[Rfam]
This 242-nucleotide RNA from Coptotermes formosanus belongs to the Rfam family "RNase MRP".

RNA sequence: GGGUUCUGACGAUCCUAGCUUCUGGGUCACGUGCAGAGGCCAUUGUGACUCUAUCGCCCAGAGGAAAGUCCCCGGAUCGUUGACAGAGAGUGUCGUGUUGUAAUUACGCAAGCAUCAACCAACUUUCCAUUGCAGAUGGGAUCGUGCAAACGUGAUCUGUGGAAUGGGUUAGGUGUGUUGGUCAUAGCACAGUAAUGCAAGGAUUAUGUAAAUAACAUAAUGGGGCUCAGUCUGUCAGAACU
Numbered sequence: 001g002g003g004u005u006c007u008g009a010c011g012a013u014c015c016u017a018g019c020u021u022c023u024g025g026g027u028c029a030c031g032u033g034c035a036g037a038g039g040c041c042a043u044u045g046u047g048a049c050u051c052u053a054u055c056g057c058c059c060a061g062a063g064g065a066a067a068g069u070c071c072c073c074g075g076a077u078c079g080u081u082g083a084c085a086g087a088g089a090g091u092g093u094c095g096u097g098u099u100g101u102a103a104u105u106a107c108g109c110a111a112g113c114a115u116c117a118a119c120c121a122a123c124u125u126u127c128c129a130u131u132g133c134a135g136a137u138g139g140g141a142u143c144g145u146g147c148a149a150a151c152g153u154g155a156u157c158u159g160u161g162g163a164a165u166g167g168g169u170u171a172g173g174u175g176u177g178u179u180g181g182u183c184a185u186a187g188c189a190c191a192g193u194a195a196u197g198c199a200a201g202g203a204u205u206a207u208g209u210a211a212a213u214a215a216c217a218u219a220a221u222g223g224g225g226c227u228c229a230g231u232c233u234g235u236c237a238g239a240a241c242u
Base pairs, nucleotide, nucleotide: 002242003241004240005239006238007237008236009235010234011233014202015201016200018198019197021062022061023060024059025058026057027056036051037050038049040047067227068226070225071224072223073222082094083093084092085091095109096108097107098106100104111174113172117170118169119168120167122165126163127162128161129160133159134158135157136156143152144151145150204212205211
Dot-bracket structure: .((((((((((..[[[.[[.(((((((........(((.(......).)))....)))))))....((.((((........((((.....))))((((.(...).)))).(.(...((((.(...((((...((((......(((....)))...)))))))).).)))).).)......................]].]]].((.....)).........)))))).....))))))))))
The source organism's lineage runs through Eukaryota, Arthropoda, Polyneoptera, Dictyoptera and Coptotermes. Rfam describes the family as follows. RNase MRP is an enzymatically active ribonucleoprotein with two distinct roles in eukaryotes. The family's RNA type in Rfam is ribozyme.